Shown here is a 122-nucleotide RNA from Phrynocephalus forsythii, a member of the family "Small nucleolar RNA SNORA32". Gene Ontology terms of the family: nucleolus and RNA processing. Rfam describes the family as follows. ACA32 is a member of the H/ACA class of snoRNA that guide the sites of modification of uridines to pseudouridines. The family has 9 seed sequences and 615 matches in Rfam 15.1.
RNA sequence: UGGUCACUACCAAGGCUGCUAGGAAACUCAGUUUCUGGUAUGCUGUGGACGUGACCAUAAAGUAAUUCCUGCAGAUUUUCAGGUUGCUACUAUAAUAGCAUCAAAUCUGUUGGGAGACAUUU
Numbered sequence: 001u002g003g004u005c006a007c008u009a010c011c012a013a014g015g016c017u018g019c020u021a022g023g024a025a026a027c028u029c030a031g032u033u034u035c036u037g038g039u040a041u042g043c044u045g046u047g048g049a050c051g052u053g054a055c056c057a058u059a060a061a062g063u064a065a066u067u068c069c070u071g072c073a074g075a076u077u078u079u080c081a082g083g084u085u086g087c088u089a090c091u092a093u094a095a096u097a098g099c100a101u102c103a104a105a106u107c108u109g110u111u112g113g114g115a116g117a118c119a120u121u122u
Base pairs, nucleotide, nucleotide: 003055004054005053006052007051010048011047012046029042030041067115068113069112074107075106076105077104085100086099087098
The organism belongs to Phrynocephalus, within Eukaryota.
The match comes from Rfam's covariance-model search (72 bits).
The family's RNA type in Rfam is H/ACA-box small nucleolar RNA.